[Rfam]
RNA sequence: UUGGGCGUGAGCCCUUCAGUGAAGUAAGCGGGACUACAAAAGUUAGUACUGACGAACAGGAAUCGGAUAUGAGGCUAUGAGGUUGGGUGAGCAGGCACAGGGCGGAGCGUUAAGAAAUAGUCCGGUGGACUAUUUUAGUGACGAGCCAGGUUGCAGGGCGGGCAAAGUCCCGUGCAAAGGCGGAAGUAGUAGAUCCGGCAGGAAUUAACUGAGAGCUACUUGU
Dot-bracket structure: ..((((....)))).............(((((....(...(((((((.(((...........((((((.....(((.(....((((((..((.................................(.................................).))...)))).............))).)))..))))))))).).))))))....)...)))))

Annotation:
The record is a 223-nucleotide RNA, which matches "Group II catalytic intron D1-D4-3" in Rfam. Rfam's curators put it in the seed alignment. Rfam 15.1 lists 4,274 matches to the family in 1,585 species. On this family, see Lehmann and Schmidt, Crit Rev Biochem Mol Biol 2003: "Group II introns: structure and catalytic versatility of large natural ribozymes".